Overview: The family of this 108-nucleotide RNA sequence from Crocodylus porosus is "Small nucleolar RNA SNORD124". The family has 18 seed sequences and 191 matches in Rfam 15.1. NCBI's taxonomy places the organism under Eukaryota, Dipnotetrapodomorpha, Archosauria, Longirostres, Crocodylus. On this family, see Yang et al., Nucleic Acids Res 2006: "snoSeeker: an advanced computational package for screening of guide and orphan snoRNA genes in the human genome". Rfam classes the family as a C/D-box small nucleolar RNA. The match comes from Rfam's covariance-model search (42 bits).
RNA sequence: UCCCACUUUGGAAGGGAUGAUGUCUGAGUACAGAAACCAAGAUAAGGAUUCUGAAUGUAUUUGCAUAUGAUUAAAUAUGUUCAAUACACUGACCUUCCAUUGGAGGAA
Dot-bracket structure: ........(((((((.............................................................................))))))).........